A member of the RNA family "mir-27 microRNA precursor family" from Gallus gallus, 72 nucleotides long.
For this family Rfam cites "The developmental miRNA profiles of zebrafish as determined by small RNA cloning" (Chen et al., Genes Dev, 2005).
The base pairs follow the family's consensus structure, which was predicted with RNAalifold.
RNA sequence: CCGUGGCGCAGGGCUUGGCGCAGCUGUGAACAGAGCCCGUCGUGUUCACAGUGGCUAAGUUCCGCGCCCCGG
Dot-bracket structure: ..........(((((((((......(((((((..........)))))))....)))))))))..........
Numbered sequence: 001c002c003g004u005g006g007c008g009c010a011g012g013g014c015u016u017g018g019c020g021c022a023g024c025u026g027u028g029a030a031c032a033g034a035g036c037c038c039g040u041c042g043u044g045u046u047c048a049c050a051g052u053g054g055c056u057a058a059g060u061u062c063c064g065c066g067c068c069c070c071g072g
Stems, first nucleotide, its partner, number of pairs: 011062009026049007